This 194-nucleotide RNA from Rhodoferax sp. TH121 belongs to the Rfam family "Manganese Mn2+ riboswitch aptamer (yybP-ykoY)".
The literature on the family includes a 2001 paper in Curr Biol by Argaman et al., "Novel small RNA-encoding genes in the intergenic regions of Escherichia coli".
From the family's description: This RNA was originally discovered in E. coli during a large scale screen and was named SraF. The family was later found to exist upstream of related families of protein genes in many bacteria, including the the yybP and ykoK genes in B. subtilis. The specific functions of these proteins are unknown, but this structured RNA element may be involved in their genetic regulation as a riboswitch.

[Rfam]
RNA sequence: ACGCUUGUCAUUGGGGAGUAGCCGCCCUUCUUCAUUGAGAGGGGCUUGCGUCAACAGACUUGUGAUGCCGGAGACGGUAUCCAUGGCGCAAGCAGGGCCCGUCACGCGGGUCUUGGCGAGACCUUUGACUGCACGCCUCUGAUUUCGGCCGGGGGUGUCGUGCAGUCAUUGGUAGGUCCCCGGCCAUGGAUCUC
Numbered sequence: 001a002c003g004c005u006u007g008u009c010a011u012u013g014g015g016g017a018g019u020a021g022c023c024g025c026c027c028u029u030c031u032u033c034a035u036u037g038a039g040a041g042g043g044g045c046u047u048g049c050g051u052c053a054a055c056a057g058a059c060u061u062g063u064g065a066u067g068c069c070g071g072a073g074a075c076g077g078u079a080u081c082c083a084u085g086g087c088g089c090a091a092g093c094a095g096g097g098c099c100c101g102u103c104a105c106g107c108g109g110g111u112c113u114u115g116g117c118g119a120g121a122c123c124u125u126u127g128a129c130u131g132c133a134c135g136c137c138u139c140u141g142a143u144u145u146c147g148g149c150c151g152g153g154g155g156u157g158u159c160g161u162g163c164a165g166u167c168a169u170u171g172g173u174a175g176g177u178c179c180c181c182g183g184c185c186a187u188g189g190a191u192c193u194c
Stems, first nucleotide, its partner, number of pairs: 026042003044093010061083002094193003098189002